Rfam assigns this 92-nucleotide RNA sequence from Donghicola eburneus to the family "Rhodo-rpoB RNA". The family's RNA type in Rfam is cis-regulatory element.

[Rfam]
Nucleotides: 092
Base pairs, nucleotide, nucleotide: 001043002042003041004040005039010031011030012029013028014027015026016025017024064092065091066090067089068088070085071084072083073082
Number, partner (000 for none) and nucleotide at each position: 001043g002042g003041a004040u005039c006000g007000g008000g009000a010031g011030g012029c013028u014027g015026c016025c017024g018000g019000u020000g021000g022000g023000a024017c025016g026015g027014u028013g029012g030011c031010c032000a033000g034000g035000c036000a037000u038000g039005g040004a041003u042002c043001c044000a045000g046000a047000a048000c049000a050000c051000g052000c053000u054000g055000u056000c057000u058000c059000u060000u061000g062000g063000g064092u065091g066090u067089g068088c069000g070085a071084c072083c073082g074000g075000g076000g077000c078000c079000c080000g081000a082073c083072g084071g085070u086000g087000c088068g089067c090066g091065c092064a
The family's consensus secondary structure is taken from published work.